Notes:
Shown here is a 111-nucleotide sequence from Agitococcus lubricus, a member of the family "Guanidine-I riboswitch aptamer". The source organism's lineage runs through Bacteria, Pseudomonadati, Pseudomonadota, Gammaproteobacteria and Agitococcus.
[Rfam]
RNA sequence: AGAGAUGAUUGCUAGGGUUCCGAUGAUUCAACUCAUGACUGGUCCGAGAGCAAUCGGCUACACUUGGAGAAAUAAGUGUUAGCUCCACGGCGGGAUAAAAGCCCGGGAGAA
Dot-bracket structure: ......((((((..((...(((((((......))))..).)).))....))))))(((((((((((......)))))).))))).(.[...(((.......))).)..]..